[Rfam]
RNA sequence: AGAAUUCGGUGUAACUGGCGACAAAGUGGAAAUUACCACAAUGGAGCACCGAGUAAUACGGCCGGUCGCCUGGGCAGGAGCA
Numbered sequence: 001a002g003a004a005u006u007c008g009g010u011g012u013a014a015c016u017g018g019c020g021a022c023a024a025a026g027u028g029g030a031a032a033u034u035a036c037c038a039c040a041a042u043g044g045a046g047c048a049c050c051g052a053g054u055a056a057u058a059c060g061g062c063c064g065g066u067c068g069c070c071u072g073g074g075c076a077g078g079a080g081c082a
Base pairs, nucleotide, nucleotide: 004054005053006052007051008050009049010048011047012046015043017070018069019068020067021066026039027038028037029036059077061075062074063073
The record is an 82-nucleotide RNA sequence from Chengkuizengella marina, which matches "ZMP/ZTP riboswitch aptamer (pfl RNA motif)" in Rfam. The family's consensus secondary structure is taken from published work. The match comes from Rfam's covariance-model search (61 bits).